[Rfam]
RNA sequence: UGAAUAGCACCGGGGAGCUGGUUGAGGCUAGCUGAGAGGGAAUUCCGAAGAAAAUUCCGACCCUUAUACCUGAUCUGGAUAAUGCCAGCGUAGGAAUGGUUAUACAGGUGUGU
Dot-bracket structure: .....(((...(((..(((((......)))))......(((((..........)))))..))).....((((..((((......))))..))))....)))............
Source information: The family of this 113-nucleotide RNA from Paenibacillus catalpae is "TPP riboswitch aptamer (THI element)". The match comes from Rfam's covariance-model search (61 bits). Vitamin B(1) in its active form thiamin pyrophosphate (TPP) is an essential coenzyme that is synthesised by coupling of pyrimidine and thiazole moieties in bacteria. The previously detected thiamin-regulatory element, thi box was extended, resulting in a new, highly conserved RNA secondary structure, the THI element, which is widely distributed in eubacteria and also occurs in some archaea. Analysis of operon structures identified a large number of new candidate thiamin-regulated genes, mostly transporters, in various prokaryotic organisms. Pairs were carried over by alignment from the consensus structure, which is taken from published work. NCBI's taxonomy places the organism under Bacteria, Bacillati, Bacillota, Paenibacillaceae, Paenibacillus.